[Rfam]
RNA sequence: AUCAUUGUGAGGUGGGGUCUGAAGGAAGCCCAAUCCAAAGCUGCGGGGCGACGAACAGGAACCUGAUACGAGGUGUGGUACAUCCGGGGCGAGCGGGCACGUGACCGCGAAGCCCUCCAACUGCGACCGGGGUGUGCUUUAUAAAUCAGGCGUCCACGCAGCGACAGUUUUGUGU
Numbered sequence: 001a002u003c004a005u006u007g008u009g010a011g012g013u014g015g016g017g018u019c020u021g022a023a024g025g026a027a028g029c030c031c032a033a034u035c036c037a038a039a040g041c042u043g044c045g046g047g048g049c050g051a052c053g054a055a056c057a058g059g060a061a062c063c064u065g066a067u068a069c070g071a072g073g074u075g076u077g078g079u080a081c082a083u084c085c086g087g088g089g090c091g092a093g094c095g096g097g098c099a100c101g102u103g104a105c106c107g108c109g110a111a112g113c114c115c116u117c118c119a120a121c122u123g124c125g126a127c128c129g130g131g132g133u134g135u136g137c138u139u140u141a142u143a144a145a146u147c148a149g150g151c152g153u154c155c156a157c158g159c160a161g162c163g164a165c166a167g168u169u170u171u172g173u174g175u
Stems, first nucleotide, its partner, number of pairs: 002015005028175002031172002036167001040162006046155005062150006073142003077138007087115004093108004

A member of the RNA family "Group II catalytic intron D1-D4-3" from Marinobacter algicola, 175 nucleotides long. Pairs were carried over by alignment from the consensus structure. Rfam describes the family as follows. Group II introns are found in rRNA, tRNA and mRNA of organelles in fungi, plants and protists, and also in mRNA in bacteria.